[Rfam]
RNA sequence: CUUCACCGACCCCAGGUACAGCGGUUCCUCGCGGUCCUGCCCGUAGGUGGCCAGCAACGCCUGCGCCUC
Number, nucleotide and partner (000 for none) at each position: 001c000002u000003u000004c000005a000006c000007c000008g000009a000010c000011c000012c000013c000014a000015g000016g000017u023018a000019c000020a000021g000022c000023g017024g000025u000026u000027c000028c065029u000030c063031g000032c059033g058034g000035u000036c000037c054038u053039g052040c000041c050042c049043g048044u000045a000046g000047g000048u043049g042050g041051c000052c039053a038054g037055c000056a000057a000058c033059g032060c000061c000062u000063g030064c000065g028066c000067c000068u000069c000
This 69-nucleotide RNA from Actinokineospora spheciospongiae belongs to the Rfam family "ASpks TB sRNA". The match comes from Rfam's covariance-model search (69 bits). The base pairs follow the family's consensus structure, which is taken from published work. By type it is an antisense RNA.